[Rfam]
RNA sequence: AUGUGUUACAGCUCUUUUAGAAUUUGUCUAGCAGGUUUUCUAGUUUUAUCAGAAAGUCCCA
Numbered sequence: 001a002u003g004u005g006u007u008a009c010a011g012c013u014c015u016u017u018u019a020g021a022a023u024u025u026g027u028c029u030a031g032c033a034g035g036u037u038u039u040c041u042a043g044u045u046u047u048a049u050c051a052g053a054a055a056g057u058c059c060c061a
Base pairs, nucleotide, nucleotide: 034058035057036056037055038054039053040052041051043049044048
RNA: U7 small nuclear RNA